[Rfam]
RNA sequence: CAUCCUGAAAGACGGUACCACGCAGGUGGAUCGAAGCGGCAAGGCAAUG
Numbered sequence: 001c002a003u004c005c006u007g008a009a010a011g012a013c014g015g016u017a018c019c020a021c022g023c024a025g026g027u028g029g030a031u032c033g034a035a036g037c038g039g040c041a042a043g044g045c046a047a048u049g
Base pairs, nucleotide, nucleotide: 013033014032015031016030018029019028020027
The record is a 49-nucleotide RNA sequence, which matches "Zeta-pan RNA" in Rfam. By type it is a small RNA. The sequence is in the family's curated seed alignment. The base pairs follow the family's consensus structure, which is taken from published work.